[Rfam]
RNA sequence: AAUGAUACUUCUGCUUAGUCCUAAGUAAUCCUAAGGAGAGCAGCCUGCCUACAGUGGGAGGAAAAUGUACGCUUGUAUUUGAGAAAGAAUACCGGUGACUUUU
Number, nucleotide and partner (000 for none) at each position: 001a000002a000003u000004g000005a000006u000007a000008c000009u000010u000011c043012u042013g041014c040015u039016u000017a000018g000019u000020c000021c000022u000023a000024a000025g000026u000027a000028a000029u000030c000031c000032u000033a000034a000035g000036g000037a000038g000039a015040g014041c013042a012043g011044c061045c060046u059047g000048c057049c056050u000051a000052c000053a000054g000055u000056g049057g048058g000059a046060g045061g044062a103063a102064a101065a100066u000067g099068u098069a000070c000071g096072c095073u000074u000075g092076u091077a090078u089079u088080u000081g000082a000083g000084a000085a000086a000087g000088a079089a078090u077091a076092c075093c000094g000095g072096u071097g000098a068099c067100u065101u064102u063103u062
About this RNA: Rfam assigns this 103-nucleotide RNA from Maledivibacter halophilus to the family "dinG RNA". The base pairs follow the family's consensus structure, which is taken from published work. Lineage of the source: Bacteria > Bacillati > Bacillota > Clostridia > Maledivibacter.